[Rfam]
RNA sequence: CUCUGUGACAGCGAACUCGGCCUGUCUCAGGGCAGAAGGAG
Numbered sequence: 001c002u003c004u005g006u007g008a009c010a011g012c013g014a015a016c017u018c019g020g021c022c023u024g025u026c027u028c029a030g031g032g033c034a035g036a037a038g039g040a041g
Stems, first nucleotide, its partner, number of pairs: 001032005008025003